Annotation: Rfam assigns this 81-nucleotide sequence from Triplophysa tibetana to the family "let-7 microRNA precursor family". The family has 64 seed sequences and 8,694 matches in Rfam 15.1. It scores 72 bits against the family's covariance model. Its family is annotated with RISC complex and miRNA-mediated post-transcriptional gene silencing in the Gene Ontology. Its Rfam clan is "let-7 microRNA precursor clan". Pairs were carried over by alignment from the consensus structure, which was predicted with RNAalifold. From the family's description: This family represents the microRNAs (miRNA) let-7 and mir-98. let-7 was identified from a study of developmental timing in C. elegans, and was later shown to be part of a much larger class of non-coding RNAs termed miRNAs.

[Rfam]
RNA sequence: UUGGGGUGAGGUAGUAGGUUGUAUAGUUGUGGGGUGAUACACUUCCUGUUAGAUAACUAUACAACUUACUGUCUUUCCUGA
Numbered sequence: 001u002u003g004g005g006g007u008g009a010g011g012u013a014g015u016a017g018g019u020u021g022u023a024u025a026g027u028u029g030u031g032g033g034g035u036g037a038u039a040c041a042c043u044u045c046c047u048g049u050u051a052g053a054u055a056a057c058u059a060u061a062c063a064a065c066u067u068a069c070u071g072u073c074u075u076u077c078c079u080g081a
Base pairs, nucleotide, nucleotide: 001081002080003079004078005077006076008075009074010073011072012071013070014069015068016067017066018065019064020063021062022061023060024059025058026057027056033044034043045052